The family of this 80-nucleotide sequence from Medicago truncatula is "MIR5269 microRNA precursor family".
[Rfam]
RNA sequence: UUAGGUGAAAUCAAUAUAUGACAUACACUUUGGAAAUGAAACCCACAGAAAGUGGAGGGACAUAUAUUAAUUUUACCAAA
Numbered sequence: 001u002u003a004g005g006u007g008a009a010a011u012c013a014a015u016a017u018a019u020g021a022c023a024u025a026c027a028c029u030u031u032g033g034a035a036a037u038g039a040a041a042c043c044c045a046c047a048g049a050a051a052g053u054g055g056a057g058g059g060a061c062a063u064a065u066a067u068u069a070a071u072u073u074u075a076c077c078a079a080a
Stems, first nucleotide, its partner, number of pairs: 001080002004077008013068006024057001026054006
Rfam links the family to the GO terms miRNA-mediated post-transcriptional gene silencing and RISC complex. A search with the family's covariance model found it, with a score of 61 bits. The base pairs follow the family's consensus structure, which was predicted with RNAalifold.